Rfam assigns this 286-nucleotide sequence from Sciurus vulgaris to the family "Mason-Pfizer monkey virus packaging signal". Its family is annotated with viral genome packaging in the Gene Ontology.
RNA sequence: UGGUGCCCAACCGUGUGGCUUUGGAUAUGGGGGAAUUCGCGAGGGAAGAGGCGUCUAAGUGUUCAGCCGAAGAAGAAAAAAAGUGAAAGUCAGCAUGACAAAAAUCACCAUGGGAGCCUGCCGCGCCAUUCUUAAAGGUACAGUAGCGCCUAAGUAUGGGACAAGGAUUAAGUAAGCAUAAAGUUUUUGUUAAGCAAUUAAAAGAAGCUUUAAAGACAGAGGGAGUAAAGGUUAAGAGUAAUGAUCUUUUUAAGUUUUUUUGACCUUAUUAAGGACACCUGUCCGU
Numbered sequence: 001u002g003g004u005g006c007c008c009a010a011c012c013g014u015g016u017g018g019c020u021u022u023g024g025a026u027a028u029g030g031g032g033g034a035a036u037u038c039g040c041g042a043g044g045g046a047a048g049a050g051g052c053g054u055c056u057a058a059g060u061g062u063u064c065a066g067c068c069g070a071a072g073a074a075g076a077a078a079a080a081a082a083g084u085g086a087a088a089g090u091c092a093g094c095a096u097g098a099c100a101a102a103a104a105u106c107a108c109c110a111u112g113g114g115a116g117c118c119u120g121c122c123g124c125g126c127c128a129u130u131c132u133u134a135a136a137g138g139u140a141c142a143g144u145a146g147c148g149c150c151u152a153a154g155u156a157u158g159g160g161a162c163a164a165g166g167a168u169u170a171a172g173u174a175a176g177c178a179u180a181a182a183g184u185u186u187u188u189g190u191u192a193a194g195c196a197a198u199u200a201a202a203a204g205a206a207g208c209u210u211u212a213a214a215g216a217c218a219g220a221g222g223g224a225g226u227a228a229a230g231g232u233u234a235a236g237a238g239u240a241a242u243g244a245u246c247u248u249u250u251u252a253a254g255u256u257u258u259u260u261u262g263a264c265c266u267u268a269u270u271a272a273g274g275a276c277a278c279c280u281g282u283c284c285g286u
Base pairs, nucleotide, nucleotide: 006033007032008031013028014027015026038050040048094138096136098133103129109125111123112122113121144164146162149160150159151158152157169212170211171210172208173207219261220260221259222258223257224256225255226254229247230246231245232244233243234242271286273284274283275282276281

It scores 154 bits against the family's covariance model.